[Rfam]
RNA sequence: AUCCAUGGUCUCAUGGGGGCUGCCGCUCGUGGCUGUACCCCUUCCUAGACAUGGAAGAGCAGUACCUUGCUAAUUGGCAAGGCUUUUACCAUCUCGUUGGUAUUAGUAGUUGACUGUAGCAAGUGACAUGC
Numbered sequence: 001a002u003c004c005a006u007g008g009u010c011u012c013a014u015g016g017g018g019g020c021u022g023c024c025g026c027u028c029g030u031g032g033c034u035g036u037a038c039c040c041c042u043u044c045c046u047a048g049a050c051a052u053g054g055a056a057g058a059g060c061a062g063u064a065c066c067u068u069g070c071u072a073a074u075u076g077g078c079a080a081g082g083c084u085u086u087u088a089c090c091a092u093c094u095c096g097u098u099g100g101u102a103u104u105a106g107u108a109g110u111u112g113a114c115u116g117u118a119g120c121a122a123g124u125g126a127c128a129u130g131c
Stems, first nucleotide, its partner, number of pairs: 002055006015041004020035001022033003068128002071125001074122003077117002080115001083106002088101004